[Rfam]
Nucleotides: 089
Base pairs, nucleotide, nucleotide: 001088002087003086004085005084006083007082010024011023012022013021026059027058028057029056065081066080067079068078069077
Number, partner (000 for none) and nucleotide at each position: 001088g002087g003086c004085c005084c006083g007082c008000u009000g010024g011023c012022g013021c014000a015000a016000c017000g018000g019000u020000a021013g022012c023011g024010c025000g026059u027058c028057a029056g030000a031000u032000u033000c034000c035000a036000g037000a038000u039000g040000a041000a042000u043000u044000c045000a046000u047000u048000g049000g050000a051000a052000c053000u054000u055000c056029c057028u058027g059026a060000a061000g062000g063000u064000u065081a066080c067079c068078u069077g070000u071000u072000c073000g074000a075000a076000u077069c078068a079067g080066g081065u082007g083006u084005g085004g086003g087002u088001c089000a
The record is an 89-nucleotide RNA sequence from Paraphaeosphaeria sporulosa, which matches "tRNA" in Rfam. The base pairs follow the family's consensus structure, which is taken from published work. It is annotated as a transfer RNA.